[Rfam]
RNA sequence: CCAGACGGCUGGAUGGUCGCUCUUCGCCCCGCUCGGCUUCGGCCGGGCGGGAUGGAGGGAGGAAAGUCCGGGCUCCACGGAAACACGGUGCCGGGUAACGCCCGGCGGGGGCGACCCUAGGGAAAGUGCCACAGAAAGCAAACCGCCGUUCCGCGGCGCCGGGGGCAACCCCGGAUGCAGCCGAGCGGUAAGGGUGAAAGGGUGCGGUAAGAGCGCACCGCGCAUGCCGGCAACGGCUGCGGCACGGUAAACCCCACCGGGAGCAAGACCAAAUAGGGACGGCCGGUCGGCGUCGCCUUCGGGCGGCGUGCGGCGCGCCAGUUUCCGGGCUGCCGUCCGGGUCGGUCGCGCGAGGCGCUCGGUAACGAGCGUCCCAGAUGAAUGACCAUCCAGAGGGGUCCGCCCCUUGGACAGAACCCGGCUUACAGGCCGUCUGGCAAC
Numbered sequence: 001c002c003a004g005a006c007g008g009c010u011g012g013a014u015g016g017u018c019g020c021u022c023u024u025c026g027c028c029c030c031g032c033u034c035g036g037c038u039u040c041g042g043c044c045g046g047g048c049g050g051g052a053u054g055g056a057g058g059g060a061g062g063a064a065a066g067u068c069c070g071g072g073c074u075c076c077a078c079g080g081a082a083a084c085a086c087g088g089u090g091c092c093g094g095g096u097a098a099c100g101c102c103c104g105g106c107g108g109g110g111g112c113g114a115c116c117c118u119a120g121g122g123a124a125a126g127u128g129c130c131a132c133a134g135a136a137a138g139c140a141a142a143c144c145g146c147c148g149u150u151c152c153g154c155g156g157c158g159c160c161g162g163g164g165g166c167a168a169c170c171c172c173g174g175a176u177g178c179a180g181c182c183g184a185g186c187g188g189u190a191a192g193g194g195u196g197a198a199a200g201g202g203u204g205c206g207g208u209a210a211g212a213g214c215g216c217a218c219c220g221c222g223c224a225u226g227c228c229g230g231c232a233a234c235g236g237c238u239g240c241g242g243c244a245c246g247g248u249a250a251a252c253c254c255c256a257c258c259g260g261g262a263g264c265a266a267g268a269c270c271a272a273a274u275a276g277g278g279a280c281g282g283c284c285g286g287u288c289g290g291c292g293u294c295g296c297c298u299u300c301g302g303g304c305g306g307c308g309u310g311c312g313g314c315g316c317g318c319c320a321g322u323u324u325c326c327g328g329g330c331u332g333c334c335g336u337c338c339g340g341g342u343c344g345g346u347c348g349c350g351c352g353a354g355g356c357g358c359u360c361g362g363u364a365a366c367g368a369g370c371g372u373c374c375c376a377g378a379u380g381a382a383u384g385a386c387c388a389u390c391c392a393g394a395g396g397g398g399u400c401c402g403c404c405c406c407u408u409g410g411a412c413a414g415a416a417c418c419c420g421g422c423u424u425a426c427a428g429g430c431c432g433u434c435u436g437g438c439a440a441c
Stems, first nucleotide, its partner, number of pairs: 001437010011426001012390007020059007028051009064424003068421005073263004082324002086259005091105005106120001107118004121254002126252002128248003143193002145189007153181001201219006220243001221241004226237004267347004277338006317330003354373008
Shown here is a 441-nucleotide sequence from Allostella humosa, a member of the family "Bacterial RNase P class A". The organism belongs to Allostella, within Bacteria.